RNA sequence: GGGUUUGCAUCCGCAAAAAUCCUCACCUAUAUAAAUGCUGUCCUUCGGGACUAUGGACAUAAACGCGCUCGUAAUAAGCGGAUCGGACCCGGGGGCGGUACCCGGCGGCUCCACCAUACAUCCUUCAUUUGGGGAUCAUGGGGCCGAAACAGGAUCGACGAACGUCUAAAGGGGUUAGCUUUGUCCCGGCUGUCUGCCACCGUUACCGGCGAAAACAGUACAAUUGCAAAUGACAAUCGUGCUCCGGUUGCCGUUGCUGCGUAAGCAGUAACCAGACCGAAACUUAAGUCCUUGCGCCUAGCCGCGUAAGGCGGGGUUCGCAGGUACCUGGCAACAGAAACCUGCAUU
Numbered sequence: 001g002g003g004u005u006u007g008c009a010u011c012c013g014c015a016a017a018a019a020u021c022c023u024c025a026c027c028u029a030u031a032u033a034a035a036u037g038c039u040g041u042c043c044u045u046c047g048g049g050a051c052u053a054u055g056g057a058c059a060u061a062a063a064c065g066c067g068c069u070c071g072u073a074a075u076a077a078g079c080g081g082a083u084c085g086g087a088c089c090c091g092g093g094g095g096c097g098g099u100a101c102c103c104g105g106c107g108g109c110u111c112c113a114c115c116a117u118a119c120a121u122c123c124u125u126c127a128u129u130u131g132g133g134g135a136u137c138a139u140g141g142g143g144c145c146g147a148a149a150c151a152g153g154a155u156c157g158a159c160g161a162a163c164g165u166c167u168a169a170a171g172g173g174g175u176u177a178g179c180u181u182u183g184u185c186c187c188g189g190c191u192g193u194c195u196g197c198c199a200c201c202g203u204u205a206c207c208g209g210c211g212a213a214a215a216c217a218g219u220a221c222a223a224u225u226g227c228a229a230a231u232g233a234c235a236a237u238c239g240u241g242c243u244c245c246g247g248u249u250g251c252c253g254u255u256g257c258u259g260c261g262u263a264a265g266c267a268g269u270a271a272c273c274a275g276a277c278c279g280a281a282a283c284u285u286a287a288g289u290c291c292u293u294g295c296g297c298c299u300a301g302c303c304g305c306g307u308a309a310g311g312c313g314g315g316g317u318u319c320g321c322a323g324g325u326a327c328c329u330g331g332c333a334a335c336a337g338a339a340a341c342c343u344g345c346a347u348u
Stems, first nucleotide, its partner, number of pairs: 040051004055186005065179002067175004079164002083161003089105005106146007187202003193212002196210003314329004320345006